[Rfam]
RNA sequence: CAUUCGUUACAUACCUGCCGCUUGACCGAGACUAGGCAGGGUUACCAAUCCGUCUCUCAUAUCCCCGCUGAGGGUGCGGGGAGCAUAGUAUCUCCA
Numbered sequence: 001c002a003u004u005c006g007u008u009a010c011a012u013a014c015c016u017g018c019c020g021c022u023u024g025a026c027c028g029a030g031a032c033u034a035g036g037c038a039g040g041g042u043u044a045c046c047a048a049u050c051c052g053u054c055u056c057u058c059a060u061a062u063c064c065c066c067g068c069u070g071a072g073g074g075u076g077c078g079g080g081g082a083g084c085a086u087a088g089u090a091u092c093u094c095c096a
Stems, first nucleotide, its partner, number of pairs: 014040005021035002028056005062082007

Annotation
Rfam assigns this 96-nucleotide sequence from Sokavirus swam1 to the family "PhotoRC-II RNA". Pairs were carried over by alignment from the consensus structure, which is taken from published work. By type it is a cis-regulatory element. It scores 59 bits against the family's covariance model. NCBI's taxonomy places the organism under Viruses, Duplodnaviria, Pantevenvirales, Sokavirus, Sokavirus swam1.